[Rfam]
RNA sequence: AGUGCUGUUGGAGGAUGAAGCCUUUGAGUGAUCCAUCAGCAGAGCACAAUGGUGCCAUGCUGACACUCUGCUGCUGACAAAGCACU
Numbered sequence: 001a002g003u004g005c006u007g008u009u010g011g012a013g014g015a016u017g018a019a020g021c022c023u024u025u026g027a028g029u030g031a032u033c034c035a036u037c038a039g040c041a042g043a044g045c046a047c048a049a050u051g052g053u054g055c056c057a058u059g060c061u062g063a064c065a066c067u068c069u070g071c072u073g074c075u076g077a078c079a080a081a082g083c084a085c086u
Base pairs, nucleotide, nucleotide: 002085003084004083005082006081008080009079010075011074013034014033015032016031018029036063037062038061039060040059044055045054046053
Small nucleolar RNA SNORD71: an 86-nucleotide RNA from Ceyx cyanopectus. Taxonomically the source falls in Ceyx (Eukaryota, Metazoa, Dinosauria, Neoaves). The literature on the family includes a 2001 paper in EMBO J by Huttenhofer et al., "RNomics: an experimental approach that identifies 201 candidates for novel, small, non-messenger RNAs in mouse". The base pairs follow the family's consensus structure, which was predicted with RNAalifold. Rfam's curators write: snoRNA HBII-239 belongs to the family of C/D snoRNAs.It is the human orthologue of the mouse MBII-239 described and is predicted to guide 2'O-ribose methylation of 5.8S rRNA on residue U14.